RNA sequence: ACCGAUAAAGGCAAACUUUGGGAAACCGGAGGACGCAAAGCUAAAGGGCCUGUAAAAUGGCAGCCAGCUACCGAAG
Numbered sequence: 001a002c003c004g005a006u007a008a009a010g011g012c013a014a015a016c017u018u019u020g021g022g023a024a025a026c027c028g029g030a031g032g033a034c035g036c037a038a039a040g041c042u043a044a045a046g047g048g049c050c051u052g053u054a055a056a057a058u059g060g061c062a063g064c065c066a067g068c069u070a071c072c073g074a075a076g
Stems, first nucleotide, its partner, number of pairs: 003073002011036002016031006034063001039069004046065002048061003
A member of the RNA family "c-di-GMP-I-GGC riboswitch aptamer" from Anoxynatronum buryatiense, 76 nucleotides long. The organism belongs to Anoxynatronum, within Bacteria.